[Rfam]
RNA sequence: CUCCCGCUGUGUCCUAUGGCUUUUUAUUCCUAUGUGAUGGUUGAGCCAGGCUCAUGUAGGGGUAGAAGCCACUGCACACACGGCGAG
Number, nucleotide and partner (000 for none) at each position: 001c000002u086003c085004c000005c083006g000007c000008u080009g079010u078011g077012u076013c000014c074015u000016a000017u071018g070019g069020c068021u067022u066023u065024u000025u000026a063027u062028u061029c060030c059031u058032a057033u056034g055035u054036g053037a052038u000039g000040g000041u000042u000043g000044a000045g000046c000047c000048a000049g000050g000051c000052u037053c036054a035055u034056g033057u032058a031059g030060g029061g028062g027063u026064a000065g023066a022067a021068g020069c019070c018071a017072c000073u000074g014075c000076a012077c011078a010079c009080a008081c000082g000083g005084c000085g003086a002087g000